About this RNA:
The family of this 131-nucleotide RNA sequence from Nannospalax galili is "Small nucleolar RNA SNORA38". Taxonomically the source falls in Nannospalax (Eukaryota, Deuterostomia, Boreoeutheria, Euarchontoglires). From the family's description: ACA38 is a member of the H/ACA class of snoRNA that guide the sites of modification of uridines to pseudouridines. The match comes from Rfam's covariance-model search (132 bits). Pairs were carried over by alignment from the consensus structure, which was predicted with RNAfold.
Nucleotides: 131
Base pairs, nucleotide, nucleotide: 002057003056004055005054006053017042018041019040020039021038024030025029069124070123071122073121091109092108093107094106096104097103
Number, partner (000 for none) and nucleotide at each position: 001000c002057c003056c004055u005054c006053c007000u008000g009000c010000a011000a012000a013000g014000g015000c016000a017042u018041g019040u020039u021038u022000u023000u024030g025029g026000u027000u028000c029025u030024c031000u032000a033000u034000c035000c036000u037000u038021g039020g040019a041018c042017a043000c044000u045000u046000a047000a048000g049000a050000a051000c052000u053006g054005g055004a056003g057002g058000c059000a060000a061000a062000g063000a064000a065000a066000u067000g068000u069124g070123g071122a072000u073121u074000u075000g076000g077000u078000g079000a080000a081000g082000u083000c084000u085000g086000g087000g088000g089000c090000c091109a092108g093107c094106u095000a096104g097103c098000u099000c100000c101000a102000g103097g104096c105000a106094g107093g108092c109091u110000c111000a112000g113000g114000a115000u116000c117000a118000a119000c120000c121073a122071u123070c124069c125000c126000a127000c128000a129000u130000a131000g